Rfam assigns this 71-nucleotide RNA sequence from Fusarium oxysporum to the family "bZIP non canonical Hac1/Xbp1 intron". It scores 42 bits against the family's covariance model. About the family: bZIP intron RNA is a non-canonical intron that was first reported in HAC1 gene in yeast and XBP1 gene in Metazoa.
RNA sequence: ACCUCUCCCGACCUGACACAACGUCCUGCUGCGAUGUUGUCCGACCUGCAGUGUCACAUGUCGGCGGAGGU
Numbered sequence: 001a002c003c004u005c006u007c008c009c010g011a012c013c014u015g016a017c018a019c020a021a022c023g024u025c026c027u028g029c030u031g032c033g034a035u036g037u038u039g040u041c042c043g044a045c046c047u048g049c050a051g052u053g054u055c056a057c058a059u060g061u062c063g064g065c066g067g068a069g070g071u
Base pairs, nucleotide, nucleotide: 001071002070003069004068005067006066008064009063010062011061012060020038021037022036023035024034025033043055044054045053